A member of the RNA family "Bacteroidales small SRP" from Porphyromonas gingivalis, 106 nucleotides long. It is annotated as a non-coding RNA gene. The base pairs follow the family's consensus structure, which is taken from published work. It is one of the family's seed sequences. Clan: SRP clan. NCBI's taxonomy places the organism under Bacteria, Pseudomonadati, Bacteroidia, Bacteroidales, Porphyromonas gingivalis.
[Rfam]
RNA sequence: GCGCCUGGGUAAGUCCUAUACGGCAUGCUCCCUUUGAUUCCCCCAGGGCUUGAUCGCAGCAAGGGUAUUAGGUCGUAGCGGCGCGAUAUAGCCAGCUUACCCAUCC
Number, nucleotide and partner (000 for none) at each position: 001g000002c000003g000004c000005c000006u000007g102008g101009g100010u099011a098012a097013g096014u095015c000016c091017u090018a089019u088020a087021c085022g084023g082024c081025a000026u000027g000028c000029u000030c000031c000032c000033u000034u000035u000036g000037a000038u000039u000040c000041c000042c000043c000044c000045a000046g000047g000048g000049c000050u000051u000052g000053a000054u000055c000056g000057c000058a000059g000060c000061a000062a000063g000064g000065g000066u000067a000068u000069u000070a000071g000072g000073u000074c000075g000076u000077a000078g000079c000080g000081g024082c023083g000084c022085g021086a000087u020088a019089u018090a017091g016092c000093c000094a000095g014096c013097u012098u011099a010100c009101c008102c007103a000104u000105c000106c000